[Rfam]
RNA sequence: CCUCACCGGGGGGCGCCCAGCGGCGCCACCCGGUGGCAGCCAGACAUCGUGACCCGGAAGAAACGGGACACACAGGGCGUU
Numbered sequence: 001c002c003u004c005a006c007c008g009g010g011g012g013g014c015g016c017c018c019a020g021c022g023g024c025g026c027c028a029c030c031c032g033g034u035g036g037c038a039g040c041c042a043g044a045c046a047u048c049g050u051g052a053c054c055c056g057g058a059a060g061a062a063a064c065g066g067g068a069c070a071c072a073c074a075g076g077g078c079g080u081u
Stems, first nucleotide, its partner, number of pairs: 004035007012027005049071003053067004

Rfam assigns this 81-nucleotide RNA sequence from Streptomyces chumphonensis to the family "nrdJ RNA".
It scores 45 bits against the family's covariance model.
NCBI's taxonomy places the organism under Bacteria, Bacillati, Actinomycetes, Streptomycetaceae, Streptomyces.
Rfam classes the family as a small RNA.